[Rfam]
RNA sequence: CAUAUAUAACAUUGAUCAUUGUAGAAGCGUGCUCGUCGCGACCCCUGCCAGCCCUUUUCAGGGCUGCAAUUCUACA
Numbered sequence: 001c002a003u004a005u006a007u008a009a010c011a012u013u014g015a016u017c018a019u020u021g022u023a024g025a026a027g028c029g030u031g032c033u034c035g036u037c038g039c040g041a042c043c044c045c046u047g048c049c050a051g052c053c054c055u056u057u058u059c060a061g062g063g064c065u066g067c068a069a070u071u072c073u074a075c076a
Base pairs, nucleotide, nucleotide: 014043016041017040020076021075022074023073024072025071026070027039028038029037049066050065051064052063053062054061055060
A member of the RNA family "Mammalian CPEB3 ribozyme" from Parnassius apollo, 76 nucleotides long.
A search with the family's covariance model found it, with a score of 39 bits.
The source organism's lineage runs through Eukaryota, Bilateria, Insecta, Aparaglossata and Parnassius.